[Rfam]
Nucleotides: 109
Stems, first nucleotide, its partner, number of pairs: 001109005007103008017093026044066007052059002
Number, partner (000 for none) and nucleotide at each position: 001109u002108a003107c004106a005105c006000u007103c008102g009101u010100a011099u012098c013097a014096g015000u016000g017093u018092c019091a020090u021089g022088g023087a024086u025085g026084u027083u028082u029081a030080c031079a032078c033077u034076c035075g036074u037073a038072u039071c040070a041069g042068u043000g044066u045065c046064a047063u048062g049061g050060a051000g052059u053058g054000u055000a056000a057000a058053u059052g060050u061049c062048c063047a064046u065045g066044a067000c068042a069041c070040u071039g072038a073037u074036a075035c076034g077033a078032g079031u080030g081029u082028a083027a084026a085025c086024g087023u088022c089021c090020a091019u092018g093017a094000c095000a096014c097013u098012g099011a100010u101009a102008c103007g104000a105005g106004u107003g108002u109001a
A member of the RNA family "mir-63 microRNA precursor family" from Oncorhynchus kisutch, 109 nucleotides long. It scores 60 bits against the family's covariance model. The organism belongs to Oncorhynchus, within Eukaryota. The family has 5 seed sequences and 26 matches in Rfam 15.1. The literature on the family includes a 2009 paper in Genome Res by de Wit et al., "Repertoire and evolution of miRNA genes in four divergent nematode species".